The family of this 112-nucleotide sequence from Aedes aegypti is "drz-agam-1 ribozyme". NCBI's taxonomy places the organism under Eukaryota, Eumetazoa, Neoptera, Culicomorpha, Stegomyia.
[Rfam]
RNA sequence: UGCCCAGCAACUUCUAUCCCUACUUCCUCGCGGUACUGGGGUACAAGUAACCUUCAGGAAGAUCGGGUAACCAACCCCGGUGGGAACUCUGGUCGUAUGCUGACAGGGAAGG
Dot-bracket structure: ............(((.(((..(((.......))).........((.((.(((......................................))).)).))......))).)))